[Rfam]
Shown here is a 337-nucleotide RNA sequence from Methanosphaerula palustris, a member of the family "Archaeal RNase P". Ribonuclease P (RNase P) is a ubiquitous endoribonuclease, found in archaea, bacteria and eukarya as well as chloroplasts and mitochondria. Its best characterised activity is the generation of mature 5'-ends of tRNAs by cleaving the 5'-leader elements of precursor-tRNAs. Cellular RNase Ps are ribonucleoproteins. RNA from bacterial RNase Ps retains its catalytic activity in the absence of the protein subunit, i.e. it is a ribozyme. Rfam classes the family as a ribozyme.
RNA sequence: GAGAGGGAGAGUGUGGCUGACGGUGGCGUAAGCUGCUGAGGAAAGUCCUCCCACCGACCGGAUGCGCAGCCGUAUGCAAGUAUGGGUGGCGAGAGUCACGGCAAUGGCACAGAAACGAUACGGCCUUCCCUGAGCGAUGAUACGGCCGAGCCUCUUGGCGAGACGGAUGCCCUGCAUCCUAUUAACCCGCUGAGCAGAUGACGGGAAGGAUACGAUGAAACGGUGAAUCCCUGCGGGUGCAAGUCAGAACAGGGCGCGUGGAGAGUCCGGUCUCUGCCCGGGUAUGACGCAUAGCUGAAUGCCACAAUGAACAGAAGGAGGCUUACUCCUCCCACUC
Dot-bracket structure: (((.(((((((((((((...(((((((....)))))))....[[[.[[[[[((((.[[[[[[..((((((((((......)))))(((((....)))))((...(.((............((.(((((((..............((...............................................)).......)))))))...))........)).)..)))))))))))...((((.....(((((.........]]]]]]...))))).....))))............))))))..........]]]]]]]].)).))))).)))
Numbered sequence: 001g002a003g004a005g006g007g008a009g010a011g012u013g014u015g016g017c018u019g020a021c022g023g024u025g026g027c028g029u030a031a032g033c034u035g036c037u038g039a040g041g042a043a044a045g046u047c048c049u050c051c052c053a054c055c056g057a058c059c060g061g062a063u064g065c066g067c068a069g070c071c072g073u074a075u076g077c078a079a080g081u082a083u084g085g086g087u088g089g090c091g092a093g094a095g096u097c098a099c100g101g102c103a104a105u106g107g108c109a110c111a112g113a114a115a116c117g118a119u120a121c122g123g124c125c126u127u128c129c130c131u132g133a134g135c136g137a138u139g140a141u142a143c144g145g146c147c148g149a150g151c152c153u154c155u156u157g158g159c160g161a162g163a164c165g166g167a168u169g170c171c172c173u174g175c176a177u178c179c180u181a182u183u184a185a186c187c188c189g190c191u192g193a194g195c196a197g198a199u200g201a202c203g204g205g206a207a208g209g210a211u212a213c214g215a216u217g218a219a220a221c222g223g224u225g226a227a228u229c230c231c232u233g234c235g236g237g238u239g240c241a242a243g244u245c246a247g248a249a250c251a252g253g254g255c256g257c258g259u260g261g262a263g264a265g266u267c268c269g270g271u272c273u274c275u276g277c278c279c280g281g282g283u284a285u286g287a288c289g290c291a292u293a294g295c296u297g298a299a300u301g302c303c304a305c306a307a308u309g310a311a312c313a314g315a316a317g318g319a320g321g322c323u324u325a326c327u328c329c330u331c332c333c334a335c336u337c
Stems, first nucleotide, its partner, number of pairs: 001337003005333005010327002012306006021038007043324003047321005052239004057271006065235005070085005086099005100230002105226001107224002121214002124209007145195002243288004252279005
Rfam links the family to the GO terms tRNA processing, multimeric ribonuclease P complex and ribonuclease P activity. A search with the family's covariance model found it, with a score of 214 bits.